[Rfam]
RNA sequence: CCCUUUGCUUUGCCCGCGCCCGCGCCUAUAUUCCUCCCUGUCCCCUUGGGGACUAUGGACAUAAACGCGCUCGUAAUAAGCGGAUCGGACCCGGGGGCGGUACCCGGCGUCUCCACCAACCAUCCUUCAUUUGGGGAUCAUGGGGACGAAAUAGGAUCGACGAACGUCUAAAGGGGUUAGCUUUGUCUCGGCGGGGUGCCACCGUAUCGGCCCGAACAGUACAAUUGCAAAUGACAAUCGUGCUCCGGUCGCAAUGGCUGCGUAAGCAGUCGGAGUAACCGAAACUUAAGCCCUUGCCUCUAGCCAGGUAAGGCGGGGUUCGCAGGCACCUGGCAACAGAAGCCUGCACU
Numbered sequence: 001c002c003c004u005u006u007g008c009u010u011u012g013c014c015c016g017c018g019c020c021c022g023c024g025c026c027u028a029u030a031u032u033c034c035u036c037c038c039u040g041u042c043c044c045c046u047u048g049g050g051g052a053c054u055a056u057g058g059a060c061a062u063a064a065a066c067g068c069g070c071u072c073g074u075a076a077u078a079a080g081c082g083g084a085u086c087g088g089a090c091c092c093g094g095g096g097g098c099g100g101u102a103c104c105c106g107g108c109g110u111c112u113c114c115a116c117c118a119a120c121c122a123u124c125c126u127u128c129a130u131u132u133g134g135g136g137a138u139c140a141u142g143g144g145g146a147c148g149a150a151a152u153a154g155g156a157u158c159g160a161c162g163a164a165c166g167u168c169u170a171a172a173g174g175g176g177u178u179a180g181c182u183u184u185g186u187c188u189c190g191g192c193g194g195g196g197u198g199c200c201a202c203c204g205u206a207u208c209g210g211c212c213c214g215a216a217c218a219g220u221a222c223a224a225u226u227g228c229a230a231a232u233g234a235c236a237a238u239c240g241u242g243c244u245c246c247g248g249u250c251g252c253a254a255u256g257g258c259u260g261c262g263u264a265a266g267c268a269g270u271c272g273g274a275g276u277a278a279c280c281g282a283a284a285c286u287u288a289a290g291c292c293c294u295u296g297c298c299u300c301u302a303g304c305c306a307g308g309u310a311a312g313g314c315g316g317g318g319u320u321c322g323c324a325g326g327c328a329c330c331u332g333g334c335a336a337c338a339g340a341a342g343c344c345u346g347c348a349c350u
Stems, first nucleotide, its partner, number of pairs: 040053005057188005067181002069177004081166002085163003091107005108148007189204003195213002198211003316331004322347006